Nucleotides: 059
Base pairs, nucleotide, nucleotide: 001045002044003043004042005041007039008038010034011033012032013031014030015029
Number, partner (000 for none) and nucleotide at each position: 001045c002044g003043u004042g005041u006000g007039g008038u009000g010034c011033u012032g013031u014030g015029c016000a017000g018000g019000u020000u021000a022000a023000c024000g025000c026000c027000u028000g029015g030014c031013a032012c033011g034010g035000a036000g037000a038008g039007c040000g041005a042004c043003a044002c045001g046000g047000c048000c049000u050000u051000c052000u053000a054000u055000g056000a057000g058000g059000u

This 59-nucleotide sequence from Pantoea vagans belongs to the Rfam family "L31-Gammaproteobacteria ribosomal protein leader". On this family, see Eckert and Weinberg, BMC Microbiol 2020: "Discovery of 20 novel ribosomal leader candidates in bacteria and archaea".